[Rfam]
Nucleotides: 087
Stems, first nucleotide, its partner, number of pairs: 012038002017033005022027001042080003046077003049072003056066004
Number, partner (000 for none) and nucleotide at each position: 001000a002000a003000c004000a005000c006000g007000a008000a009000a010000u011000g012038g013037c014000a015000a016000a017033c018032u019031u020030g021029c022027u023000g024000a025000a026000a027022a028000u029021g030020c031019a032018a033017g034000g035000a036000c037013g038012c039000a040000a041000a042080g043079c044078u045000a046077u047076g048075g049072g050071c051070c052000u053000a054000c055000g056066g057065a058064a059063u060000u061000a062000g063059a064058u065057u066056c067000u068000a069000c070051g071050g072049c073000u074000g075048c076047c077046a078044g079043g080042c081000c082000g083000c084000c085000g086000a087000a